[Rfam]
Burkholderia RNA 7 (anti-hemB): a 91-nucleotide RNA from Crenobacter luteus. Its family is annotated with protein binding and bacterial biofilm matrix in the Gene Ontology. About the family: This RNA motif was identified by computational search in b-proteobacteria Burkholderia. Co-purified with Hfq, expression confirmed by Northern blot. The base pairs follow the family's consensus structure, which is taken from published work.

RNA sequence: CCUCCCGCUUUCCCUCCCUGAGCGGGUGCCUUGGUGCUGACCAUCGAGGCCUUUCGCCCCGGCGCAUCCUCCUUGAGCCGGGGCUUUUUAU
Numbered sequence: 001c002c003u004c005c006c007g008c009u010u011u012c013c014c015u016c017c018c019u020g021a022g023c024g025g026g027u028g029c030c031u032u033g034g035u036g037c038u039g040a041c042c043a044u045c046g047a048g049g050c051c052u053u054u055c056g057c058c059c060c061g062g063c064g065c066a067u068c069c070u071c072c073u074u075g076a077g078c079c080g081g082g083g084c085u086u087u088u089u090a091u
Base pairs, nucleotide, nucleotide: 004026005025006024007023008022009021028050029049030048031047032043033042034041057083058082059081060080061079062078063077